[Rfam]
RNA sequence: CCUGUACGGCUUUGCCACAGGUCGGGAUGUGAUCCGCGGGGCCGACGCCUCGUUGAGAUUGAACCAGGAA
Numbered sequence: 001c002c003u004g005u006a007c008g009g010c011u012u013u014g015c016c017a018c019a020g021g022u023c024g025g026g027a028u029g030u031g032a033u034c035c036g037c038g039g040g041g042c043c044g045a046c047g048c049c050u051c052g053u054u055g056a057g058a059u060u061g062a063a064c065c066a067g068g069a070a
Stems, first nucleotide, its partner, number of pairs: 001021005024065002031060004
RNA: eL15-Euryarchaeota ribosomal protein leader
Organism: Natronobacterium gregoryi